[Rfam]
RNA sequence: CUUGCAAGUUUGAGGCCAAAGCAGAAGCGCUCACGGCGUGGCUUGUCAGAUUCCAGCAUCUCUGCAAAUUCUGCU
Number, nucleotide and partner (000 for none) at each position: 001c000002u000003u000004g000005c000006a000007a000008g000009u000010u000011u000012g000013a000014g000015g042016c041017c040018a000019a000020a075021g074022c073023a072024g071025a070026a069027g039028c038029g037030c000031u000032c000033a000034c000035g000036g000037c029038g028039u027040g017041g016042c015043u000044u000045g000046u000047c064048a063049g062050a061051u000052u000053c000054c000055a000056g000057c000058a000059u000060c000061u050062c049063u048064g047065c000066a000067a000068a000069u026070u025071c024072u023073g022074c021075u020
RNA: Mammalian CPEB3 ribozyme